[Rfam]
Nucleotides: 112
Stems, first nucleotide, its partner, number of pairs: 020096006029061006071087005
Number, partner (000 for none) and nucleotide at each position: 001000c002000g003000a004000u005000u006000a007000c008000c009000a010000a011000c012000u013000g014000a015000a016000u017000a018000g019000c020096u021095u022094c023093g024092u025091a026000u027000a028000a029061c030060c031059u032058c033057a034056c035000g036000a037000c038000a039000u040000u041000u042000u043000u044000g045000g046000a047000u048000c049000a050000a051000g052000c053000a054000g055000g056034g057033u058032g059031a060030g061029g062000g063000u064000u065000u066000c067000u068000a069000c070000g071087g072086g073085g074084a075083g076000c077000c078000u079000u080000a081000a082000c083075u084074u085073c086072c087071u088000a089000a090000c091025u092024a093023c094022g095021a096020a097000u098000a099000u100000g101000c102000g103000a104000u105000c106000a107000u108000u109000a110000c111000g112000c